[Rfam]
RNA sequence: AAACGCCAUGUUUGCGCUUACAGCAUAACGAUAAUAAUGAAAUUCCUCUUUGACUGGCCAAUAGAGAUAUUGGCCAUUUUUUU
Numbered sequence: 001a002a003a004c005g006c007c008a009u010g011u012u013u014g015c016g017c018u019u020a021c022a023g024c025a026u027a028a029c030g031a032u033a034a035u036a037a038u039g040a041a042a043u044u045c046c047u048c049u050u051u052g053a054c055u056g057g058c059c060a061a062u063a064g065a066g067a068u069a070u071u072g073g074c075c076a077u078u079u080u081u082u083u
Base pairs, nucleotide, nucleotide: 008019010017011016028035055076056075057074058073059072060071061070062069063068

Overview: Rfam assigns this 83-nucleotide RNA from Hafnia alvei to the family "sroB RNA". The family's consensus secondary structure was predicted with LocARNA. Taxonomically the source falls in Hafnia alvei (Bacteria, Pseudomonadati, Gammaproteobacteria, Hafnia).